RNA: Glycine riboswitch aptamer
RNA sequence: UUCAUCAGAUCGGGAGAAUCCGGUGCCCUGGCGCCGGUGCCGAAGGAGCAACCGCCCCGGUAAACUCUCAGGCGCAAGGGACCGUUCUGACAAC
Numbered sequence: 001u002u003c004a005u006c007a008g009a010u011c012g013g014g015a016g017a018a019u020c021c022g023g024u025g026c027c028c029u030g031g032c033g034c035c036g037g038u039g040c041c042g043a044a045g046g047a048g049c050a051a052c053c054g055c056c057c058c059g060g061u062a063a064a065c066u067c068u069c070a071g072g073c074g075c076a077a078g079g080g081a082c083c084g085u086u087c088u089g090a091c092a093a094c
Stems, first nucleotide, its partner, number of pairs: 006089004011084003020037004039073003042069002046067003052060002
Dot-bracket structure: .....((((.(((......((((..........)))).(((((..(((...((.....))....))))).)))........))).)))).....